[Rfam]
RNA sequence: GGUUCAGGACGACCUGGAGUCUGACGUGGUGGAGGUUCGGGACGACCUGG
Numbered sequence: 001g002g003u004u005c006a007g008g009a010c011g012a013c014c015u016g017g018a019g020u021c022u023g024a025c026g027u028g029g030u031g032g033a034g035g036u037u038c039g040g041g042a043c044g045a046c047c048u049g050g
Base pairs, nucleotide, nucleotide: 001020003018004017005016006015007014008013037050038049039048040047041046
RNA: Guanidine-II riboswitch aptamer (mini-ykkC)